Shown here is a 35-nucleotide sequence from Pedobacter planticolens, a member of the family "DUF805b RNA". By type it is a cis-regulatory element. A search with the family's covariance model found it, with a score of 38 bits.

RNA sequence: AUGGCGGCUGCUGAAAAGCCUUUAAAGAGUAAGCA
Numbered sequence: 001a002u003g004g005c006g007g008c009u010g011c012u013g014a015a016a017a018g019c020c021u022u023u024a025a026a027g028a029g030u031a032a033g034c035a
Stems, first nucleotide, its partner, number of pairs: 003020003010034003